The record is a 127-nucleotide RNA sequence from Tetracentron sinense, which matches "U11 spliceosomal RNA" in Rfam. On this family, see Montzka and Steitz, Proc Natl Acad Sci U S A 1988: "Additional low-abundance human small nuclear ribonucleoproteins: U11, U12, etc".
[Rfam]
RNA sequence: UAAAAGGGUCGGUUGGCUAAAUAUGCCACGCUCAUCCUAGCUUGGUGAGUGCUGUAUGGUCAUCAAGACAUAUGGCUGACAUAAUUUGUGUAAACCUAUAGGGUUGGCUCGCUCGGCCGACCCUCCC
Numbered sequence: 001u002a003a004a005a006g007g008g009u010c011g012g013u014u015g016g017c018u019a020a021a022u023a024u025g026c027c028a029c030g031c032u033c034a035u036c037c038u039a040g041c042u043u044g045g046u047g048a049g050u051g052c053u054g055u056a057u058g059g060u061c062a063u064c065a066a067g068a069c070a071u072a073u074g075g076c077u078g079a080c081a082u083a084a085u086u087u088g089u090g091u092a093a094a095c096c097u098a099u100a101g102g103g104u105u106g107g108c109u110c111g112c113u114c115g116g117c118c119g120a121c122c123c124u125c126c127c
Base pairs, nucleotide, nucleotide: 008080009079010078011077012076014028015027016026017025029051030050031049032048033047034046035045036044052075053074054073055072056071057070058069100124101123102122103121104120105119106118107117109116110115
Dot-bracket structure: .......(((((.((((.......))))((((((((.......))))))))(((((((..........))))))))))))...................((((((((.((....))))))))))...